[Rfam]
RNA sequence: UAACCAUCCCGAGCGGCCGAGAGAUCUGGCUCUGUGACGCCGCAGCAACCACCGAUGAACAACAUGUUCACGGCCGGUGCUACCGCCAGGACCGAUGGAGA
Number, nucleotide and partner (000 for none) at each position: 001u101002a000003a000004c098005c097006a096007u095008c094009c000010c000011g000012a000013g043014c042015g041016g040017c039018c000019g000020a000021g032022a031023g030024a000025u000026c089027u088028g087029g086030c023031u022032c021033u000034g000035u000036g000037a000038c000039g017040c016041c015042g014043c013044a081045g080046c079047a078048a000049c077050c076051a000052c073053c072054g071055a000056u000057g000058a000059a000060c000061a000062a000063c000064a000065u000066g000067u000068u000069c000070a000071c054072g053073g052074c000075c000076g050077g049078u047079g046080c045081u044082a000083c000084c000085g093086c029087c028088a027089g026090g000091a000092c000093c085094g008095a007096u006097g005098g004099a000100g000101a001
SAM riboswitch aptamer (S box leader): a 101-nucleotide RNA from Glutamicibacter uratoxydans. The match comes from Rfam's covariance-model search (54 bits). The literature on the family includes a 1998 paper in Mol Microbiol by Grundy and Henkin, "The S box regulon: a new global transcription termination control system for methionine and cysteine biosynthesis genes in gram-positive bacteria". Pairs were carried over by alignment from the consensus structure, which is taken from published work.